Background
The family of this 116-nucleotide RNA sequence from Oceaniovalibus sp. ACAM 378 is "ALIL pseudoknot". The organism belongs to Oceaniovalibus, within Bacteria. The literature on the family includes a 2008 paper in J Biol Chem by Mazauric et al., "Apical loop-internal loop RNA pseudoknots: a new type of stimulator of -1 translational frameshifting in bacteria". It is annotated as a cis-regulatory element. The family's consensus secondary structure is taken from published work.
[Rfam]
RNA sequence: AGCGUAUUUUGCGAUGGUGGAGUCGACCGCCGCUCGAAGGGAUGGUCAAGUUCAUCGACGACCAUCGGGGUGAACAUGGGGUCGAACCGAUCUGCGACAUGCUGCCAAUCGCUCCU
Numbered sequence: 001a002g003c004g005u006a007u008u009u010u011g012c013g014a015u016g017g018u019g020g021a022g023u024c025g026a027c028c029g030c031c032g033c034u035c036g037a038a039g040g041g042a043u044g045g046u047c048a049a050g051u052u053c054a055u056c057g058a059c060g061a062c063c064a065u066c067g068g069g070g071u072g073a074a075c076a077u078g079g080g081g082u083c084g085a086a087c088c089g090a091u092c093u094g095c096g097a098c099a100u101g102c103u104g105c106c107a108a109u110c111g112c113u114c115c116u
Stems, first nucleotide, its partner, number of pairs: 016031005078115004088111002091108001094105003